[Rfam]
RNA sequence: AUAUACACUGAGUGGCUGGAUUAUUAUGAUCUCUGAACGCAUAAUAGUCUGGCCACUCAGUGUACUU
Number, nucleotide and partner (000 for none) at each position: 001a000002u000003a000004u064005a063006c062007a061008c060009u059010g058011a057012g056013u055014g054015g053016c052017u051018g000019g049020a048021u047022u046023a045024u044025u043026a042027u041028g040029a000030u000031c000032u000033c000034u000035g000036a000037a000038c000039g000040c028041a027042u026043a025044a024045u023046a022047g021048u020049c019050u000051g017052g016053c015054c014055a013056c012057u011058c010059a009060g008061u007062g006063u005064a004065c000066u000067u000

A member of the RNA family "mir-9256 microRNA precursor family" from Pipistrellus kuhlii, 67 nucleotides long. The family has 8 seed sequences and 31,772 matches in Rfam 15.1.